[Rfam]
RNA sequence: CAACCAUCGUCGUGAGGCGAUGCUGAACCGGCAGAAGUCAGCAGAGGUCAUAGUACCUGCAAGGAGACGUCCGGGCAGGGAAGGAC
Numbered sequence: 001c002a003a004c005c006a007u008c009g010u011c012g013u014g015a016g017g018c019g020a021u022g023c024u025g026a027a028c029c030g031g032c033a034g035a036a037g038u039c040a041g042c043a044g045a046g047g048u049c050a051u052a053g054u055a056c057c058u059g060c061a062a063g064g065a066g067a068c069g070u071c072c073g074g075g076c077a078g079g080g081a082a083g084g085a086c
Base pairs, nucleotide, nucleotide: 001025002024005022006021007020008019009018010017011016038045039044047086048085049084056079057078058077059076060075
The record is an 86-nucleotide sequence from Paenalicyclobacillus macrosporangiidus, which matches "Group II catalytic intron D1-D4-1" in Rfam. It scores 76 bits against the family's covariance model. Taxonomically the source falls in Paenalicyclobacillus (Bacteria, Bacillati, Caryophanales, Alicyclobacillaceae). Pairs were carried over by alignment from the consensus structure. Rfam links the family to the GO term Group II intron splicing. The family has 237 seed sequences and 2,508 matches in Rfam 15.1.